[Rfam]
RNA sequence: UACACCGCUGACGGUUGAAACACCGUGUACCCGCCAUUACUGGUAAGGGGAGUGGAAAUGAAUCUGACACAGGACGCGUGGUAAAGCGGUCGCACCUGCCAUGCGUAGGAGAUAGAG
Numbered sequence: 001u002a003c004a005c006c007g008c009u010g011a012c013g014g015u016u017g018a019a020a021c022a023c024c025g026u027g028u029a030c031c032c033g034c035c036a037u038u039a040c041u042g043g044u045a046a047g048g049g050g051a052g053u054g055g056a057a058a059u060g061a062a063u064c065u066g067a068c069a070c071a072g073g074a075c076g077c078g079u080g081g082u083a084a085a086g087c088g089g090u091c092g093c094a095c096c097u098g099c100c101a102u103g104c105g106u107a108g109g110a111g112a113u114a115g116a117g
Stems, first nucleotide, its partner, number of pairs: 003054003011026005031048002034043003063110003074106010086093002

Shown here is a 117-nucleotide RNA sequence, a member of the family "RT-4 RNA". Rfam classes the family as a small RNA.